[Rfam]
RNA sequence: GAAGGAAAGAUCCAAAGGGAUCGCACGAUCCAUUCAUCCAAUCAUGGUUAAGGGGAGGGAUCAAUGCGAUCCCUUUGGAUGCUUCCUU
Numbered sequence: 001g002a003a004g005g006a007a008a009g010a011u012c013c014a015a016a017g018g019g020a021u022c023g024c025a026c027g028a029u030c031c032a033u034u035c036a037u038c039c040a041a042u043c044a045u046g047g048u049u050a051a052g053g054g055g056a057g058g059g060a061u062c063a064a065u066g067c068g069a070u071c072c073c074u075u076u077g078g079a080u081g082c083u084u085c086c087u088u
Stems, first nucleotide, its partner, number of pairs: 002088005010080012023067003027062005035055001
This 88-nucleotide RNA from Spirodela intermedia belongs to the Rfam family "mir-393 microRNA precursor family". The match comes from Rfam's covariance-model search (65 bits). A reference for the family is Kruszka et al. (2012), "Role of microRNAs and other sRNAs of plants in their changing environments", J Plant Physiol. Rfam 15.1 lists 1,052 matches to the family in 221 species. Lineage of the source: Eukaryota > Magnoliopsida > Mesangiospermae > Liliopsida > Spirodela. Rfam links the family to the GO terms RISC complex and miRNA-mediated post-transcriptional gene silencing.